[Rfam]
RNA sequence: UGGCGCCCAACGUGGGGCUCCAGCACGGGGGAUCCAGUGAAGGACGCCGUUCGAGUGGCCGACAGAAAGGAAAGCAAAGGAAAAGAAAAUAAAAGAAAAGAGGGAACAACAUGGGAACCUGCUACGUCUGCACUCCUCGGGUAAGUGAACGGCGAUUAUGGGUCAAGCAUUGAGCCAAGAUAAGAUGUUCGUUGAAGGACUAGGAAAGGCUAUAAAGGCACGAGGAGUAAAGGUAAAAAUUAAGCAUUUGUGUAUAUUAAAGAAGUUUGUCCUU
Numbered sequence: 001u002g003g004c005g006c007c008c009a010a011c012g013u014g015g016g017g018c019u020c021c022a023g024c025a026c027g028g029g030g031g032a033u034c035c036a037g038u039g040a041a042g043g044a045c046g047c048c049g050u051u052c053g054a055g056u057g058g059c060c061g062a063c064a065g066a067a068a069g070g071a072a073a074g075c076a077a078a079g080g081a082a083a084a085g086a087a088a089a090u091a092a093a094a095g096a097a098a099a100g101a102g103g104g105a106a107c108a109a110c111a112u113g114g115g116a117a118c119c120u121g122c123u124a125c126g127u128c129u130g131c132a133c134u135c136c137u138c139g140g141g142u143a144a145g146u147g148a149a150c151g152g153c154g155a156u157u158a159u160g161g162g163u164c165a166a167g168c169a170u171u172g173a174g175c176c177a178a179g180a181u182a183a184g185a186u187g188u189u190c191g192u193u194g195a196a197g198g199a200c201u202a203g204g205a206a207a208g209g210c211u212a213u214a215a216a217g218g219c220a221c222g223a224g225g226a227g228u229a230a231a232g233g234u235a236a237a238a239a240u241u242a243a244g245c246a247u248u249u250g251u252g253u254a255u256a257u258u259a260a261a262g263a264a265g266u267u268u269g270u271c272c273u274u
Base pairs, nucleotide, nucleotide: 006031007030008029012026013025014024036056038054100138101137102135103134107130108129110126112124113123114122146165147164148163150162153160154159171214172213174210175209176208221269222268223267224266226258227257228256231249232248233247234246
The record is a 274-nucleotide RNA sequence from Molossus molossus, which matches "Mason-Pfizer monkey virus packaging signal" in Rfam. It scores 74 bits against the family's covariance model. Rfam links the family to the GO term viral genome packaging. Lineage of the source: Eukaryota > Sarcopterygii > Eutheria > Boreoeutheria > Molossus. Pairs were carried over by alignment from the consensus structure, which was predicted with PFOLD. About the family: This family represents a group of sequences that are related to the Mason-Pfizer monkey virus (MPMV) packaging signal. The packaging signal is located in the 5' UTR and is required for specific RNA encapsidation.